[Rfam]
RNA sequence: GCGGACGUGGCGGAAUCGGUAGACGCACGAGACUUAAAAUCUUGCGACCUCUGGUCGUGCGGGUUCGAGUCCCGCCGUCCGCA
Numbered sequence: 001g002c003g004g005a006c007g008u009g010g011c012g013g014a015a016u017c018g019g020u021a022g023a024c025g026c027a028c029g030a031g032a033c034u035u036a037a038a039a040u041c042u043u044g045c046g047a048c049c050u051c052u053g054g055u056c057g058u059g060c061g062g063g064u065u066c067g068a069g070u071c072c073c074g075c076c077g078u079c080c081g082c083a
Base pairs, nucleotide, nucleotide: 001082002081003080004079005078006077007076010026011025012024028044029043030042031041032040059075060074061073062072063071

A member of the RNA family "tRNA" from Methylobacterium terrae, 83 nucleotides long. Taxonomically the source falls in Methylobacterium (Bacteria, Pseudomonadota, Alphaproteobacteria, Methylobacteriaceae). Pairs were carried over by alignment from the consensus structure, which is taken from published work.